[Rfam]
RNA sequence: UUCUAAACCGGAUUGCAGAGGAGAUCCUUUUUUGCUGCCCGGGGCCGGGCUAUAGGCAAAAAAGAUCGCAUCGUAAAGCCGGAACAAAC
Numbered sequence: 001u002u003c004u005a006a007a008c009c010g011g012a013u014u015g016c017a018g019a020g021g022a023g024a025u026c027c028u029u030u031u032u033u034g035c036u037g038c039c040c041g042g043g044g045c046c047g048g049g050c051u052a053u054a055g056g057c058a059a060a061a062a063a064g065a066u067c068g069c070a071u072c073g074u075a076a077a078g079c080c081g082g083a084a085c086a087a088a089c
Stems, first nucleotide, its partner, number of pairs: 009081003013077002018072002023067004029062008

Source information:
Shown here is an 89-nucleotide sequence from Pedobacter sp. Leaf216, a member of the family "Flavo-1 RNA". The organism belongs to Pedobacter, within Bacteria. The match comes from Rfam's covariance-model search (66 bits).